Alphaproteobacterial sRNA ar7: a 144-nucleotide sequence from Neorhizobium sp. S3-V5DH. The family's RNA type in Rfam is small RNA. Lineage of the source: Bacteria > Pseudomonadota > Hyphomicrobiales > Rhizobiaceae > Neorhizobium. The pairing is the family consensus, mapped onto this sequence. A search with the family's covariance model found it, with a score of 102 bits.

RNA sequence: UACCGGCGACUGAUCACGCCGCAGUCUGGAAGACGGCCUGUCCCCCGCCGCACCAGACCGGGCAAAGACCUACCCCCCUCUCCGGGUCUUUGCCCUUCCAUCGGAACCGCCAUGGCUGUCCCCUCCCGGCCAUGGCGGUUUUUC
Dot-bracket structure: ........................(((((.....(((.........)))...)))))..(((((((((((..............)))))))))))........(..((((((((((((........)))))))))))).)....